[Rfam]
Record summary
The record is a 74-nucleotide RNA sequence from Orrella marina, which matches "tRNA" in Rfam. Rfam classes the family as a transfer RNA. Pairs were carried over by alignment from the consensus structure, which is taken from published work.
RNA sequence: GUCCCCGUAGCUCAACUGGAUAGAGCACCCGCCUUCUAAGCGGGUGGUUGCGUGUUCGAGUCACGCCGGGGGCG
Numbered sequence: 001g002u003c004c005c006c007g008u009a010g011c012u013c014a015a016c017u018g019g020a021u022a023g024a025g026c027a028c029c030c031g032c033c034u035u036c037u038a039a040g041c042g043g044g045u046g047g048u049u050g051c052g053u054g055u056u057c058g059a060g061u062c063a064c065g066c067c068g069g070g071g072g073c074g
Stems, first nucleotide, its partner, number of pairs: 001073007010026004028044005050066005